Background:
The family of this 85-nucleotide sequence from Sodalis praecaptivus is "CyaR/Rye RNA". From the family's description: This sRNA was originally identified in a large scale screen of E. coli. It was shown to bind Hfq and called RyeE. This sRNA has since been characterised as a post-transcriptional regulator of the 18 kDa OmpX porin in Salmonella. Phylogenetic and mutational analyses suggest that a conserved RNA hairpin of this sRNA which features a C-rich apical loop, acts to sequester the Shine-Dalgarno sequence of ompX mRNA and inhibits translational initiation.
RNA sequence: UUGCUGAAAAAAAGGAAAACAACGACCAGUUACUCACCAGGACCACCUCUUUUGCCAGCUCAUCCUCCCUUGAGCUGGCACUUUA
Numbered sequence: 001u002u003g004c005u006g007a008a009a010a011a012a013a014g015g016a017a018a019a020c021a022a023c024g025a026c027c028a029g030u031u032a033c034u035c036a037c038c039a040g041g042a043c044c045a046c047c048u049c050u051u052u053u054g055c056c057a058g059c060u061c062a063u064c065c066u067c068c069c070u071u072g073a074g075c076u077g078g079c080a081c082u083u084u085a
Stems, first nucleotide, its partner, number of pairs: 039051004053080010
Pairs were carried over by alignment from the consensus structure, which was predicted with PFOLD.
By type it is a small RNA.
Taxonomically the source falls in Sodalis (Bacteria, Pseudomonadati, Pseudomonadota, Enterobacterales).
It scores 48 bits against the family's covariance model.